RNA sequence: GGCGUUCGGCCGCCGAAUCCGCUCCUCGCGGAACCGGGGAUCCCAUUUUUCCGGGGUGAAUCGGACGCCAGCCCAGGGCUGCGCCCGUAGGGCACUUCCAGUCCCGAACCCGUCAGCUAACCCGGUAGGCGGCAUGGAAGCUAGGA
Numbered sequence: 001g002g003c004g005u006u007c008g009g010c011c012g013c014c015g016a017a018u019c020c021g022c023u024c025c026u027c028g029c030g031g032a033a034c035c036g037g038g039g040a041u042c043c044c045a046u047u048u049u050u051c052c053g054g055g056g057u058g059a060a061u062c063g064g065a066c067g068c069c070a071g072c073c074c075a076g077g078g079c080u081g082c083g084c085c086c087g088u089a090g091g092g093c094a095c096u097u098c099c100a101g102u103c104c105c106g107a108a109c110c111c112g113u114c115a116g117c118u119a120a121c122c123c124g125g126u127a128g129g130c131g132g133c134a135u136g137g138a139a140g141c142u143a144g145g146a
Stems, first nucleotide, its partner, number of pairs: 011131004018032003033126006043053001054111003062087003090105003